[Rfam]
RNA sequence: AUGUUAUCAAGAAAGGUGAAGGGAUUAGACCCAAUGAAGCCUUAGCAACCCUUUGUUAUGCUGAAAUCUAUUCAGUGUUUUAAAGAAGGUGCUAAAUUCUACUCAACUAUUUUAGUUGGAUAGAUAACAA
Numbered sequence: 001a002u003g004u005u006a007u008c009a010a011g012a013a014a015g016g017u018g019a020a021g022g023g024a025u026u027a028g029a030c031c032c033a034a035u036g037a038a039g040c041c042u043u044a045g046c047a048a049c050c051c052u053u054u055g056u057u058a059u060g061c062u063g064a065a066a067u068c069u070a071u072u073c074a075g076u077g078u079u080u081u082a083a084a085g086a087a088g089g090u091g092c093u094a095a096a097u098u099c100u101a102c103u104c105a106a107c108u109a110u111u112u113u114a115g116u117u118g119g120a121u122a123g124a125u126a127a128c129a130a
Stems, first nucleotide, its partner, number of pairs: 002129007013043005021032003026101004044093004049089002051085004097122001102119001104118005

This 130-nucleotide sequence from Polaribacter reichenbachii belongs to the Rfam family "SAM riboswitch aptamer (S box leader)". The base pairs follow the family's consensus structure, which is taken from published work.